[Rfam]
RNA sequence: CUCUUAUCCCGAGCUGGCGGAGGGACAGGCCCGACGAAGCCCGGCAACCAUCCUCAAUGAACAAUGAGGAAAGGUGCUAACCUGGCAAGGCGCAUAGCGUCUUGGAAGAUAAGAG
Numbered sequence: 001c002u003c004u005u006a007u008c009c010c011g012a013g014c015u016g017g018c019g020g021a022g023g024g025a026c027a028g029g030c031c032c033g034a035c036g037a038a039g040c041c042c043g044g045c046a047a048c049c050a051u052c053c054u055c056a057a058u059g060a061a062c063a064a065u066g067a068g069g070a071a072a073g074g075u076g077c078u079a080a081c082c083u084g085g086c087a088a089g090g091c092g093c094a095u096a097g098c099g100u101c102u103u104g105g106a107a108g109a110u111a112a113g114a115g
Stems, first nucleotide, its partner, number of pairs: 001115008013042001016041003022032003026085001028083002043078004048074002051070006086104006